RNA sequence: GGGCCUGGGCGAGACGAGGAUCCGCUGGGCGAUAACGAUGGUCGCUCCAGUUCAGCGGGGAGUCAGUAGCGAAACCGGCGCCUGCGAAG
Numbered sequence: 001g002g003g004c005c006u007g008g009g010c011g012a013g014a015c016g017a018g019g020a021u022c023c024g025c026u027g028g029g030c031g032a033u034a035a036c037g038a039u040g041g042u043c044g045c046u047c048c049a050g051u052u053c054a055g056c057g058g059g060g061a062g063u064c065a066g067u068a069g070c071g072a073a074a075c076c077g078g079c080g081c082c083u084g085c086g087a088a089g
Stems, first nucleotide, its partner, number of pairs: 004086001006084006013064003022058008040076002042072005
RNA: c-di-GMP-II-GAG riboswitch aptamer
Organism: Actinoplanes octamycinicus